RNA sequence: UAAUAUAGGAAUUUUAUACUUCGUAUAUGUUUGGAAAUAUGGUCCAAGCGUUUCUACCAGGCAGCCGGAAACAGCCUGACUACGAGGGUUUACAUAAGCAUU
Number, nucleotide and partner (000 for none) at each position: 001u000002a000003a000004u000005a000006u000007a000008g000009g000010a000011a000012u000013u000014u000015u000016a000017u000018a000019c087020u086021u085022c084023g083024u082025a081026u000027a000028u000029g049030u048031u047032u046033g045034g044035a043036a000037a000038u000039a000040u000041g000042g000043u035044c034045c033046a032047a031048g030049c029050g000051u000052u000053u000054c000055u000056a000057c000058c078059a077060g076061g075062c074063a000064g072065c000066c000067g000068g000069a000070a000071a000072c064073a000074g062075c061076c060077u059078g058079a000080c000081u025082a024083c023084g022085a021086g020087g019088g000089u000090u000091u000092a000093c000094a000095u000096a000097a000098g000099c000100a000101u000102u000
RNA: Purine riboswitch aptamer
Organism: Clostridium sp. BL8